[Rfam]
Rfam assigns this 288-nucleotide part of an RNA from Staphylothermus hellenicus to the family "Archaeal large subunit ribosomal RNA". Rfam links the family to the GO terms ribosome and structural constituent of ribosome.

RNA sequence: GGCCGCCUGAGGGGAAGGUGCCCUCAGUACGAGAGGAACGGGGUGCCGCGGCCAAUGGUGUACCGGUUGUCCGGCAGGGCAGAGCCGGGCAGCCACGCCGUAGGGGGUAACCGCUGAAAGCAUCUAAGCGGGAACCCCUCCCCGAAAAGAGGCGGCCGUCCGCCGAAGAGGUUUCUCUUCGGCGGGUAGGGCUCCCGUAGAAGACGGGGUUGAUGGGGCGGGGGUGUAAGCCCCGAGGGAGCAUUGUCUCCCAAGGGGUUUAGCCCGCCGCUCCCAAGAGCCCGACGC
Numbered sequence: 001g002g003c004c005g006c007c008u009g010a011g012g013g014g015a016a017g018g019u020g021c022c023c024u025c026a027g028u029a030c031g032a033g034a035g036g037a038a039c040g041g042g043g044u045g046c047c048g049c050g051g052c053c054a055a056u057g058g059u060g061u062a063c064c065g066g067u068u069g070u071c072c073g074g075c076a077g078g079g080c081a082g083a084g085c086c087g088g089g090c091a092g093c094c095a096c097g098c099c100g101u102a103g104g105g106g107g108u109a110a111c112c113g114c115u116g117a118a119a120g121c122a123u124c125u126a127a128g129c130g131g132g133a134a135c136c137c138c139u140c141c142c143c144g145a146a147a148a149g150a151g152g153c154g155g156c157c158g159u160c161c162g163c164c165g166a167a168g169a170g171g172u173u174u175c176u177c178u179u180c181g182g183c184g185g186g187u188a189g190g191g192c193u194c195c196c197g198u199a200g201a202a203g204a205c206g207g208g209g210u211u212g213a214u215g216g217g218g219c220g221g222g223g224g225u226g227u228a229a230g231c232c233c234c235g236a237g238g239g240a241g242c243a244u245u246g247u248c249u250c251c252c253a254a255g256g257g258g259u260u261u262a263g264c265c266c267g268c269c270g271c272u273c274c275c276a277a278g279a280g281c282c283c284g285a286c287g288c
Base pairs, nucleotide, nucleotide: 001157002156003155004154005153006152007151008150011143012142013141014140017047018046019045020044021043022042023041024040048101049100050099051098052097056095057094058093063088064087065086066085067084068081069080070079071078072077104138105137106136111131112130113129114128115127189283190282191281192280193209194208195207196206197205214276215275216274217272218271219270220269221268222266223265224264230259231258232257233256234255237252238251239250240249241248